[Rfam]
RNA sequence: CUGCAGAUAUUGUCAGGCCUCAUUCUACCUUCUGAGCCUUGGAAGGUAGAAUGAGGCCUGAUAAUCUCUACAG
Dot-bracket structure: (((.(((.((..((((((((((((((((((((.........))))))))))))))))))))..)).))).)))